[Rfam]
RNA sequence: AAGGCAGUUGCAGUUUUUCUACACGCGCUUUGGUUAACGUUAGACAAAUUAGACCGCGACCGUGUGUCGCCAUAAAGUUAAUCGCUUCUGGCGUUACUUUGUCAGCAGCCAUGAUCA
Numbered sequence: 001a002a003g004g005c006a007g008u009u010g011c012a013g014u015u016u017u018u019c020u021a022c023a024c025g026c027g028c029u030u031u032g033g034u035u036a037a038c039g040u041u042a043g044a045c046a047a048a049u050u051a052g053a054c055c056g057c058g059a060c061c062g063u064g065u066g067u068c069g070c071c072a073u074a075a076a077g078u079u080a081a082u083c084g085c086u087u088c089u090g091g092c093g094u095u096a097c098u099u100u101g102u103c104a105g106c107a108g109c110c111a112u113g114a115u116c117a
Stems, first nucleotide, its partner, number of pairs: 003071003007067002010040002014037002048063002052060001054058001079117001081115003084109002088105006
RNA: Vibrio RNA AS9